[Rfam]
Rfam assigns this 118-nucleotide RNA from Exobacillus caeni to the family "epsC RNA". The organism belongs to Exobacillus, within Bacteria.
Nucleotides: 118
Stems, first nucleotide, its partner, number of pairs: 001019004007034007035101004039095008049069004054064001072084004104118005
Number, partner (000 for none) and nucleotide at each position: 001019u002018g003017g004016c005000a006000a007034u008033g009032u010031c011030u012029c013028c014000u015000u016004g017003c018002c019001a020000u021000u022000a023000u024000c025000g026000a027000c028013g029012g030011a031010g032009g033008c034007a035101c036100u037099c038098g039095g040094c041093u042092a043091u044090g045089c046088u047000g048000u049069g050068g051067g052066u053000a054064c055000a056000a057000u058000g059000a060000c061000u062000c063000a064054g065000c066052a067051c068050c069049u070000u071000a072084g073083a074082c075081a076000c077000a078000a079000g080000u081075u082074g083073u084072c085000g086000u087000u088046a089045g090044u091043g092042u093041a094040g095039u096000g097000a098038u099037g100036a101035g102000g103000u104118a105117g106116g107115g108114u109000u110000a111000g112000a113000u114108g115107c116106c117105c118104u